[Rfam]
RNA: Group II catalytic intron D1-D4-3
RNA sequence: UUAGGUGGAAUCUAAAUCUAAAGUAAGUCGGAGACAAAGUCUUAGCAUGAGGGACACGAACUACAUAUACUGCUUAUUGGGAAUGGACGAGUUUGUAAAACAAAGUUCAAUAUUAUCUAAAUUCUUAAGAGUAGAUGUAGCAGAUACAUGAGAUGAAGGUUGUUGCU
Number, nucleotide and partner (000 for none) at each position: 001u015002u014003a013004g012005g011006u010007g000008g000009a000010a006011u005012c004013u003014a002015a001016a000017u000018c000019u000020a000021a000022a000023g000024u000025a000026a000027g167028u000029c165030g164031g163032a000033g000034a160035c159036a000037a000038a000039g154040u153041c152042u151043u150044a149045g145046c000047a000048u142049g141050a000051g000052g000053g000054a000055c000056a000057c000058g000059a000060a000061c140062u139063a138064c137065a136066u135067a000068u000069a000070c000071u000072g132073c131074u130075u000076a000077u000078u127079g126080g125081g124082a123083a122084u000085g108086g107087a106088c105089g000090a000091g101092u100093u099094u098095g000096u000097a000098a094099a093100a092101c091102a000103a000104a000105g088106u087107u086108c085109a000110a000111u000112a000113u000114u000115a000116u000117c000118u000119a000120a000121a000122u083123u082124c081125u080126u079127a078128a000129g000130a074131g073132u072133a000134g000135a066136u065137g064138u063139a062140g061141c049142a048143g000144a000145u045146a000147c000148a000149u044150g043151a042152g041153a040154u039155g000156a000157a000158g000159g035160u034161u000162g000163u031164u030165g029166c000167u027